The record is a 145-nucleotide sequence from Oceanobacillus zhaokaii, which matches "FMN riboswitch aptamer (RFN element)" in Rfam. Rfam describes the family as follows. The RFN element is a highly conserved domain that is found frequently in the 5'-untranslated regions of prokaryotic mRNAs that encode for flavin mononucleotide (FMN) biosynthesis and transport proteins.
[Rfam]
Nucleotides: 145
Stems, first nucleotide, its partner, number of pairs: 003143008017029003031125002033114002035062004057112002066089004094110005116128003
Number, partner (000 for none) and nucleotide at each position: 001000a002000u003143a004142u005141u006140c007139c008138u009137u010136c011000g012000g013000g014000g015000u016000c017029g018028g019027g020000u021000g022000a023000a024000a025000u026000u027019c028018c029017c030000a031125a032124u033114c034113g035062g036061c037060g038059g039000u040000a041000a042000u043000g044000a045000u046000a047000c048000g049000a050000u051000a052000u053000c054000u055000a056000a057112g058111u059038c060037c061036g062035c063000g064000a065000c066089c067088u068087g069086u070000a071000u072000g073000g074000u075000u076000u077000u078000c079000u080000a081000a082000c083000c084000g085000u086069a087068u088067g089066g090000c091000u092000g093000a094110u095109c096108u097107g098106g099000u100000g101000u102000a103000a104000c105000u106098c107097c108096a109095g110094a111058a112057c113034c114033g115000a116128c117127a118126g119000u120000u121000a122000a123000a124032g125031u126118c127117u128116g129000g130000a131000u132000g133000a134000g135000a136010g137009a138008a139007g140006g141005a142004a143003u144000u145000u